[Rfam]
Shown here is a 107-nucleotide sequence, a member of the family "RT-5 RNA". Rfam's curators put it in the seed alignment. By type it is a small RNA.
RNA sequence: CCGCGCCUGCGGCGGGUGCAGCACGCUUUUUUGAAACACAAGCCUUGCAGGCGGCCCGAGCGUGUACCACCUGGUGAUCGGCAAUUUUGCCGAUUCAAAAUCAUUCC
Numbered sequence: 001c002c003g004c005g006c007c008u009g010c011g012g013c014g015g016g017u018g019c020a021g022c023a024c025g026c027u028u029u030u031u032u033g034a035a036a037c038a039c040a041a042g043c044c045u046u047g048c049a050g051g052c053g054g055c056c057c058g059a060g061c062g063u064g065u066a067c068c069a070c071c072u073g074g075u076g077a078u079c080g081g082c083a084a085u086u087u088u089g090c091c092g093a094u095u096c097a098a099a100a101u102c103a104u105u106c107c
Stems, first nucleotide, its partner, number of pairs: 005052007013073003017069002021065008042055003078093006